Rfam assigns this 355-nucleotide RNA sequence from Cereibacter sphaeroides to the family "Alphaproteobacteria transfer-messenger RNA".
[Rfam]
RNA sequence: CCGCUUGCGGAGGCCGCCCCUCCCGCCUAUAUUCCGCCUGUCCGGGGCAACCCGGACUAUGGACAUAAACGCGCUCGUCAUAAGCGGAUCGGACCCGGGGGCGGUACCCGGCGGCUCCACCAACAGUCCCUCGUUGGGGGCGGAGGGGGCCGAAACAGGAUCGACGAACGUCUAAAGGGGUUGGCUUUGUCCCGGUGAGGUACCACCGUUAUCGGUCCGAAAAGUACAGUUGCCAACGACAACCGUGCUCCGGUGGCUCUGGCUGCGUAAGCAGUUCGAGUUAUCGAAACUUAAGCCCUUGCGCUUAGCCGCGUAAGGCGGGGUUCGCAGGUACCUGGCAACAGAAACCUGCACU
Numbered sequence: 001c002c003g004c005u006u007g008c009g010g011a012g013g014c015c016g017c018c019c020c021u022c023c024c025g026c027c028u029a030u031a032u033u034c035c036g037c038c039u040g041u042c043c044g045g046g047g048c049a050a051c052c053c054g055g056a057c058u059a060u061g062g063a064c065a066u067a068a069a070c071g072c073g074c075u076c077g078u079c080a081u082a083a084g085c086g087g088a089u090c091g092g093a094c095c096c097g098g099g100g101g102c103g104g105u106a107c108c109c110g111g112c113g114g115c116u117c118c119a120c121c122a123a124c125a126g127u128c129c130c131u132c133g134u135u136g137g138g139g140g141c142g143g144a145g146g147g148g149g150c151c152g153a154a155a156c157a158g159g160a161u162c163g164a165c166g167a168a169c170g171u172c173u174a175a176a177g178g179g180g181u182u183g184g185c186u187u188u189g190u191c192c193c194g195g196u197g198a199g200g201u202a203c204c205a206c207c208g209u210u211a212u213c214g215g216u217c218c219g220a221a222a223a224g225u226a227c228a229g230u231u232g233c234c235a236a237c238g239a240c241a242a243c244c245g246u247g248c249u250c251c252g253g254u255g256g257c258u259c260u261g262g263c264u265g266c267g268u269a270a271g272c273a274g275u276u277c278g279a280g281u282u283a284u285c286g287a288a289a290c291u292u293a294a295g296c297c298c299u300u301g302c303g304c305u306u307a308g309c310c311g312c313g314u315a316a317g318g319c320g321g322g323g324u325u326c327g328c329a330g331g332u333a334c335c336u337g338g339c340a341a342c343a344g345a346a347a348c349c350u351g352c353a354c355u
Stems, first nucleotide, its partner, number of pairs: 040057007061192005071185002073181004085170002089167003095111005112152007193208004199218002202216003321336004327352006
The source organism's lineage runs through Bacteria, Pseudomonadota, Rhodobacterales, Paracoccaceae and Cereibacter sphaeroides. The sequence is in the family's curated seed alignment. Gene Ontology term of the family: RNA catabolic process. Clan: tRNA clan. The family's RNA type in Rfam is non-coding RNA gene.